The family of this 125-nucleotide RNA sequence from Brassica oleracea is "MIR9563 microRNA precursor family".
RNA sequence: GAAAGUUAAGAAACUGUUUCUUAAUUUUUAACUAAAAAUGCUAAGAACCAGUUCUUAAAGUCCUUAUUUAAGAACCGGCUCUUAGUUUUUUUAGUUAAAACUUAAGAAGCAGUUUCUUAACUUCC
Numbered sequence: 001g002a003a004a005g006u007u008a009a010g011a012a013a014c015u016g017u018u019u020c021u022u023a024a025u026u027u028u029u030a031a032c033u034a035a036a037a038a039u040g041c042u043a044a045g046a047a048c049c050a051g052u053u054c055u056u057a058a059a060g061u062c063c064u065u066a067u068u069u070a071a072g073a074a075c076c077g078g079c080u081c082u083u084a085g086u087u088u089u090u091u092u093a094g095u096u097a098a099a100a101c102u103u104a105a106g107a108a109g110c111a112g113u114u115u116c117u118u119a120a121c122u123u124c125c
Stems, first nucleotide, its partner, number of pairs: 001125001003123022026100013041085006
The organism belongs to Brassica oleracea, within Eukaryota.